[Rfam]
RNA: Acido-Lenti-1 RNA
Nucleotides: 046
Stems, first nucleotide, its partner, number of pairs: 001020008033045004
Number, partner (000 for none) and nucleotide at each position: 001020c002019c003018a004017g005016g006015g007014g008013c009000u010000u011000g012000c013008g014007c015006c016005c017004c018003u019002g020001g021000c022000u023000a024000g025000a026000a027000a028000c029000g030000g031000u032000c033045g034044c035043c036042c037000c038000u039000u040000c041000a042036g043035g044034g045033c046000u